[Rfam]
This 104-nucleotide RNA from Arabis alpina belongs to the Rfam family "Small nucleolar RNA R30/Z108". Pairs were carried over by alignment from the consensus structure, which was predicted with PFOLD. From the family's description: snoR30 is a C/D box small nucleolar RNA which acts as a methylation guide for 18S ribosomal RNA in plants. It scores 68 bits against the family's covariance model. Its family is annotated with RNA processing and nucleolus in the Gene Ontology.
RNA sequence: UGAGAUUACAAUGAGGAUUUACAGCUCCCUCUUCUGAUUUUUUAUUUGAAGAAAGUGGCUGGCAGAAUCGAACCAUAAUUUUUUAUGUUGCCAUAACUGAGUAA
Numbered sequence: 001u002g003a004g005a006u007u008a009c010a011a012u013g014a015g016g017a018u019u020u021a022c023a024g025c026u027c028c029c030u031c032u033u034c035u036g037a038u039u040u041u042u043u044a045u046u047u048g049a050a051g052a053a054a055g056u057g058g059c060u061g062g063c064a065g066a067a068u069c070g071a072a073c074c075a076u077a078a079u080u081u082u083u084u085a086u087g088u089u090g091c092c093a094u095a096a097c098u099g100a101g102u103a104a
Base pairs, nucleotide, nucleotide: 006104007103008102009101